Shown here is a 72-nucleotide sequence from Halalkalibacter suaedae, a member of the family "Bacillus-plasmid RNA". The family's consensus secondary structure is taken from published work.

RNA sequence: UCUGUCAACGGUAAUCGCAGGGAGGGGCGGUUUUCCCCGACUGAGAAUUAAGGAGUUGAUAGACACUCCGCA
Numbered sequence: 001u002c003u004g005u006c007a008a009c010g011g012u013a014a015u016c017g018c019a020g021g022g023a024g025g026g027g028c029g030g031u032u033u034u035c036c037c038c039g040a041c042u043g044a045g046a047a048u049u050a051a052g053g054a055g056u057u058g059a060u061a062g063a064c065a066c067u068c069c070g071c072a
Stems, first nucleotide, its partner, number of pairs: 001063009